Source information: The record is an 87-nucleotide sequence from Cnephaeus nilssonii, which matches "mir-9195 microRNA precursor family" in Rfam. A search with the family's covariance model found it, with a score of 92 bits.
[Rfam]
Nucleotides: 087
Base pairs, nucleotide, nucleotide: 004084005083006082013073014072015071016070017069020067021066022065023064024063025062026061028059029058030057031056032055033054037050038049039048040047041046
Number, partner (000 for none) and nucleotide at each position: 001000a002000g003000a004084g005083g006082c007000c008000c009000u010000c011000c012000u013073u014072g015071g016070c017069c018000a019000g020067g021066g022065u023064a024063g025062a026061a027000c028059g029058c030057u031056u032055g033054c034000c035000u036000u037050g038049u039048u040047g041046c042000c043000g044000u045000g046041g047040u048039g049038a050037u051000g052000a053000a054033g055032c056031a057030a058029g059028c060000a061026u062025u063024c064023u065022g066021c067020c068000a069017g070016g071015c072014c073013g074000c075000u076000c077000a078000c079000g080000c081000u082006g083005c084004c085000c086000g087000c
Source information: Rfam links the family to the GO terms miRNA-mediated post-transcriptional gene silencing and RISC complex.